Rfam assigns this 94-nucleotide RNA sequence from Stackebrandtia albiflava to the family "Bacterial small signal recognition particle RNA". Clan: SRP clan. It scores 69 bits against the family's covariance model. Pairs were carried over by alignment from the consensus structure, which is taken from published work. Taxonomically the source falls in Stackebrandtia (Bacteria, Actinomycetes, Glycomycetales, Glycomycetaceae). Rfam's curators write: The signal recognition particle (SRP) is a universally conserved ribonucleoprotein involved in the co-translational targeting of proteins to membranes.
RNA sequence: GAUGCCUCUCACGCGGCGUUACCCCGUGAACCUCCCCAGGGCCGGAAGGCAGCAAGGAUAAGCGGGCUCUUGCGGGUGCGUGGGAGGCCCUUUU
Numbered sequence: 001g002a003u004g005c006c007u008c009u010c011a012c013g014c015g016g017c018g019u020u021a022c023c024c025c026g027u028g029a030a031c032c033u034c035c036c037c038a039g040g041g042c043c044g045g046a047a048g049g050c051a052g053c054a055a056g057g058a059u060a061a062g063c064g065g066g067c068u069c070u071u072g073c074g075g076g077u078g079c080g081u082g083g084g085a086g087g088c089c090c091u092u093u094u
Base pairs, nucleotide, nucleotide: 004088005087006086007085008084009083010082011081012080013079014076017074018073019072021070023066024065025064026063027062033058034057035056041050042049043048